[Rfam]
RNA sequence: AUAUCAACCGCGUCAGGGCGACGAUGCUUCGACGCUGUGACAUACCUCCCUGUUGGACUUGGCCGAGCCUCGCGCUCGGCUUUUUUU
Number, nucleotide and partner (000 for none) at each position: 001a043002u042003a000004u040005c039006a038007a000008c000009c000010g000011c000012g000013u000014c000015a000016g000017g000018g000019c000020g000021a000022c000023g000024a000025u000026g000027c000028u000029u000030c000031g000032a000033c000034g000035c000036u000037g000038u006039g005040a004041c000042a002043u001044a000045c000046c000047u000048c000049c000050c000051u000052g000053u000054u000055g000056g000057a000058c000059u000060u000061g081062g080063c079064c078065g077066a076067g075068c074069c000070u000071c000072g000073c000074g068075c067076u066077c065078g064079g063080c062081u061082u000083u000084u000085u000086u000087u000
Rfam assigns this 87-nucleotide RNA from Oceanicella actignis to the family "Singlet oxygen resistance RNA X". A search with the family's covariance model found it, with a score of 52 bits. Its family is annotated with response to photooxidative stress in the Gene Ontology. The literature on the family includes a 2016 paper in RNA Biol by Peng et al., "Regulation of a polyamine transporter by the conserved 3' UTR-derived sRNA SorX confers resistance to singlet oxygen and organic hydroperoxides in Rhodobacter sphaeroides". SorX (RSs2461)like SorY is a singlet oxygen induced sRNA that counteracts oxidative stress by targeting mRNA for a transporter in Rhodobacter. It also has an impact on resistance against organic hydroperoxides.